[Rfam]
RNA sequence: GCUGGCAUGAUGAUGAUGACUUUUUUGCCGUUUACCCAACUGAGUUUUUUGAUGAGUAACUUGUAUCUGAAGUGCCAGC
Numbered sequence: 001g002c003u004g005g006c007a008u009g010a011u012g013a014u015g016a017u018g019a020c021u022u023u024u025u026u027g028c029c030g031u032u033u034a035c036c037c038a039a040c041u042g043a044g045u046u047u048u049u050u051g052a053u054g055a056g057u058a059a060c061u062u063g064u065a066u067c068u069g070a071a072g073u074g075c076c077a078g079c
Base pairs, nucleotide, nucleotide: 001079002078003077004076005075006074007073